Shown here is a 91-nucleotide RNA from Bacillus sp. T33-2, a member of the family "c-di-GMP-I riboswitch aptamer". Rfam describes the family as follows. GEMM was predicted in a large-scale screen for bacterial structured RNA regulatory elements. Genes associated with GEMM are involved in a diverse array of functions, including chemotaxis regulation, signal transduction, secretion and chitin. The family is grouped with related families in Rfam's "c-di-GMP_I riboswitch clan". NCBI's taxonomy places the organism under Bacteria, Bacillota, Bacilli, Caryophanales, Bacillus. It scores 79 bits against the family's covariance model. Pairs were carried over by alignment from the consensus structure, which is taken from published work.
[Rfam]
RNA sequence: CUAUGAAAAAGGCAAACUUCUCGAAAGGGGAGGACGCAAAGCCGUGAGUCUAAGGCAUGCUGAUAUGUGCUAUGAUCGUCAGGUUUCCAUA
Numbered sequence: 001c002u003a004u005g006a007a008a009a010a011g012g013c014a015a016a017c018u019u020c021u022c023g024a025a026a027g028g029g030g031a032g033g034a035c036g037c038a039a040a041g042c043c044g045u046g047a048g049u050c051u052a053a054g055g056c057a058u059g060c061u062g063a064u065a066u067g068u069g070c071u072a073u074g075a076u077c078g079u080c081a082g083g084u085u086u087c088c089a090u091a
Base pairs, nucleotide, nucleotide: 012037013036017032018031019030020029021028022027040085041084042083043082045081046080047079048076049075050074055070056069057068058067